Rfam assigns this 100-nucleotide RNA sequence from Desulfosporosinus fructosivorans to the family "Pyrrolysine insertion sequence mttB". The literature on the family includes a 2013 paper in BMC Bioinformatics by Theil Have et al., "Effects of using coding potential, sequence conservation and mRNA structure conservation for predicting pyrroly-sine containing genes". It scores 92 bits against the family's covariance model. Rfam 15.1 lists 416 matches to the family in 326 species. The base pairs follow the family's consensus structure, which was predicted with CMfinder.

RNA sequence: UAGGUAGAUAGCAAAAUUCCGGAUGGCCAAGCAGCACAUGAGUUCACGAUUACUGCUUUACUAACAGCGUUGGCAGGGUCCAACCUGAUCUAUGGAGCGG
Numbered sequence: 001u002a003g004g005u006a007g008a009u010a011g012c013a014a015a016a017u018u019c020c021g022g023a024u025g026g027c028c029a030a031g032c033a034g035c036a037c038a039u040g041a042g043u044u045c046a047c048g049a050u051u052a053c054u055g056c057u058u059u060a061c062u063a064a065c066a067g068c069g070u071u072g073g074c075a076g077g078g079u080c081c082a083a084c085c086u087g088a089u090c091u092a093u094g095g096a097g098c099g100g
Base pairs, nucleotide, nucleotide: 003012025032033062034061077098079096080095